[Rfam]
RNA: Mycobacterium sRNA Ms_IGR-8
Organism: Mycolicibacterium hassiacum
RNA sequence: ACGCCUGGUCGAAGCGAACGUGAAACCGCUGCGGAAAUCCGGUCGAUUCGCCGCAGCGGUUUC
Numbered sequence: 001a002c003g004c005c006u007g008g009u010c011g012a013a014g015c016g017a018a019c020g021u022g023a024a025a026c027c028g029c030u031g032c033g034g035a036a037a038u039c040c041g042g043u044c045g046a047u048u049c050g051c052c053g054c055a056g057c058g059g060u061u062u063c
Stems, first nucleotide, its partner, number of pairs: 022063013039045001